[Rfam]
RNA sequence: GAAAACUCCAACCAGGCGCAUCAUCCAGCAGCGGUGAUGUGUGACCAGCAGCGUCUUCGGUUGACGAAGUUUUC
Numbered sequence: 001g002a003a004a005a006c007u008c009c010a011a012c013c014a015g016g017c018g019c020a021u022c023a024u025c026c027a028g029c030a031g032c033g034g035u036g037a038u039g040u041g042u043g044a045c046c047a048g049c050a051g052c053g054u055c056u057u058c059g060g061u062u063g064a065c066g067a068a069g070u071u072u073u074c
Stems, first nucleotide, its partner, number of pairs: 001074007009063005020038006043055003

The family of this 74-nucleotide sequence from Sugiyamaella lignohabitans is "bZIP non canonical Hac1/Xbp1 intron". About the family: bZIP intron RNA is a non-canonical intron that was first reported in HAC1 gene in yeast and XBP1 gene in Metazoa. It scores 51 bits against the family's covariance model. The family's consensus secondary structure was predicted with RNAfold. The family has 112 seed sequences and 1,325 matches in Rfam 15.1. By type it is a small RNA.